A member of the RNA family "Small nucleolar RNA R64/Z200 family" from Artemisia annua, 98 nucleotides long.
Its family is annotated with RNA processing and nucleolus in the Gene Ontology.
NCBI's taxonomy places the organism under Eukaryota, Mesangiospermae, eudicotyledons, Asterales, Artemisia.
By type it is a C/D-box small nucleolar RNA.

RNA sequence: AUUCUGCGAUGAUGAAAUAUGAAUAAUUCACAUGUCAGACUUCAGAGAUUUUGUUUUCAAAAUCAAUGAGAAUGAAAUUCAUAUUAUCUGAGUUGAUA
Numbered sequence: 001a002u003u004c005u006g007c008g009a010u011g012a013u014g015a016a017a018u019a020u021g022a023a024u025a026a027u028u029c030a031c032a033u034g035u036c037a038g039a040c041u042u043c044a045g046a047g048a049u050u051u052u053g054u055u056u057u058c059a060a061a062a063u064c065a066a067u068g069a070g071a072a073u074g075a076a077a078u079u080c081a082u083a084u085u086a087u088c089u090g091a092g093u094u095g096a097u098a
Base pairs, nucleotide, nucleotide: 003096004095006093007092047064048063049062050061051060052059